[Rfam]
RNA sequence: GGAGUCGGCCAGGCAAUCGCUGCGCGCAAGCGUGGAGGAAAGUCCGGGCUCCCAGGGCAAGGUGCCAGGUAACACCUGGGGGGCGCGAGCCCACGGAAAGUGCAACAGAAAGCAAACCGCCUAAGCGCUGUUUUCGUGACGGCGCCGGUAAGGGUGAAAGGGUGCGGUAAGAGCGCACCGCGCCGGUGGCAACACUCGGCGGCACGGCAAACCCCGCCCGGAGCAAGACCAAAUAGGGGAGCAAGCAGCCCAUUCUCAGGAGUGGGUCGCACGUGCGGCCCGCACAGGCUCCCGGGUAGGUCGCUUGAGGUGCGCGGUAACGUGCAUCCCAGAUGAAUGAUUGCCCUCGACAAAACCCGGCUUAUCGGCCGACUCCAUUU
Numbered sequence: 001g002g003a004g005u006c007g008g009c010c011a012g013g014c015a016a017u018c019g020c021u022g023c024g025c026g027c028a029a030g031c032g033u034g035g036a037g038g039a040a041a042g043u044c045c046g047g048g049c050u051c052c053c054a055g056g057g058c059a060a061g062g063u064g065c066c067a068g069g070u071a072a073c074a075c076c077u078g079g080g081g082g083g084c085g086c087g088a089g090c091c092c093a094c095g096g097a098a099a100g101u102g103c104a105a106c107a108g109a110a111a112g113c114a115a116a117c118c119g120c121c122u123a124a125g126c127g128c129u130g131u132u133u134u135c136g137u138g139a140c141g142g143c144g145c146c147g148g149u150a151a152g153g154g155u156g157a158a159a160g161g162g163u164g165c166g167g168u169a170a171g172a173g174c175g176c177a178c179c180g181c182g183c184c185g186g187u188g189g190c191a192a193c194a195c196u197c198g199g200c201g202g203c204a205c206g207g208c209a210a211a212c213c214c215c216g217c218c219c220g221g222a223g224c225a226a227g228a229c230c231a232a233a234u235a236g237g238g239g240a241g242c243a244a245g246c247a248g249c250c251c252a253u254u255c256u257c258a259g260g261a262g263u264g265g266g267u268c269g270c271a272c273g274u275g276c277g278g279c280c281c282g283c284a285c286a287g288g289c290u291c292c293c294g295g296g297u298a299g300g301u302c303g304c305u306u307g308a309g310g311u312g313c314g315c316g317g318u319a320a321c322g323u324g325c326a327u328c329c330c331a332g333a334u335g336a337a338u339g340a341u342u343g344c345c346c347u348c349g350a351c352a353a354a355a356c357c358c359g360g361c362u363u364a365u366c367g368g369c370c371g372a373c374u375c376c377a378u379u380u
Base pairs, nucleotide, nucleotide: 001376002375003374004373005372006371007370008369009368010367011365012345013344014343015342016341017340018339020035021034022033023032024031025030040363041362042361044360045359046358047357048356049223050222051221052220055281056280057279058278061218062217063216064215065079066078067077068076069075080094081092082091083090084089095214096213100212101211102208103207117153118152119149120148121147125145126144127143128142129141130140131139132138161179162178163177164176165175166174180203181201182200183199184198185197186195187194188193227302228301229300230299237293238292239291240290241289242288273285274284275283276282309328310327311326312325313324314323315322316321

Description
Rfam assigns this 380-nucleotide RNA sequence from Steroidobacter denitrificans to the family "Bacterial RNase P class A". The organism belongs to Steroidobacter, within Bacteria. Rfam classes the family as a ribozyme.